[Rfam]
RNA: L31-Firmicutes ribosomal protein leader
RNA sequence: CUCUGUUUCAGAUGAUUCAGGGCGGAAGGAG
Dot-bracket structure: (((((..((....))..))))).........